Rfam assigns this 99-nucleotide RNA from Medicago truncatula to the family "MIR2587 microRNA precursor family". The base pairs follow the family's consensus structure, which was predicted with RNAalifold. It scores 78 bits against the family's covariance model. NCBI's taxonomy places the organism under Eukaryota, Mesangiospermae, Pentapetalae, Fabales, Medicago.
RNA sequence: GUGUCAUGGUCAUUGUUGACCGUUCAUAGGAAUCCUAAAAUUGCAACGCAUUGCAGCUUGUGUGGGGUUCAUAUAACGGUCAACAGAGGCCCUUAACAU
Numbered sequence: 001g002u003g004u005c006a007u008g009g010u011c012a013u014u015g016u017u018g019a020c021c022g023u024u025c026a027u028a029g030g031a032a033u034c035c036u037a038a039a040a041u042u043g044c045a046a047c048g049c050a051u052u053g054c055a056g057c058u059u060g061u062g063u064g065g066g067g068u069u070c071a072u073a074u075a076a077c078g079g080u081c082a083a084c085a086g087a088g089g090c091c092c093u094u095a096a097c098a099u
Base pairs, nucleotide, nucleotide: 001099002098003097004096006094008091009090010089011088013086014085015084016083017082018081019080020079021078022077023076024075026074027073028072030070031069032068033067034066035065036064037063039061043057